[Rfam]
This 84-nucleotide RNA from Enterococcus saccharolyticus belongs to the Rfam family "RNA anti-toxin A". The family's consensus secondary structure was predicted with RNAalifold. Gene Ontology terms of the family: negative regulation of translation and mRNA binding.
RNA sequence: UACUGUAUAUGUAAAAGAGGAGCUGCGCAAACAACUCCUCUAACAGCACCGUUUAAGACGGUGACCGAGUGUUCUUAUUUUUUA
Numbered sequence: 001u002a003c004u005g006u007a008u009a010u011g012u013a014a015a016a017g018a019g020g021a022g023c024u025g026c027g028c029a030a031a032c033a034a035c036u037c038c039u040c041u042a043a044c045a046g047c048a049c050c051g052u053u054u055a056a057g058a059c060g061g062u063g064a065c066c067g068a069g070u071g072u073u074c075u076u077a078u079u080u081u082u083u084a
Base pairs, nucleotide, nucleotide: 024033025032048062049061050060051059052058053057
The source organism's lineage runs through Bacteria, Bacillati, Bacillota, Lactobacillales and Enterococcus saccharolyticus subsp. saccharolyticus.